[Rfam]
RNA sequence: UGCGCGGCUGUGACGAAGAUCUUAUGGACUAGAGUUUCCGAGUCGGUUCUAGUAGGCCGAAGCUGACGAGAAACCCCUUGGCUGUCCGAGCCGUGCG
Numbered sequence: 001u002g003c004g005c006g007g008c009u010g011u012g013a014c015g016a017a018g019a020u021c022u023u024a025u026g027g028a029c030u031a032g033a034g035u036u037u038c039c040g041a042g043u044c045g046g047u048u049c050u051a052g053u054a055g056g057c058c059g060a061a062g063c064u065g066a067c068g069a070g071a072a073a074c075c076c077c078u079u080g081g082c083u084g085u086c087c088g089a090g091c092c093g094u095g096c097g
Base pairs, nucleotide, nucleotide: 001097002096003095004094005093006092007091008090035068037066038065043060044059045058046057047056
RNA: Small nucleolar RNA Z157/R69/R10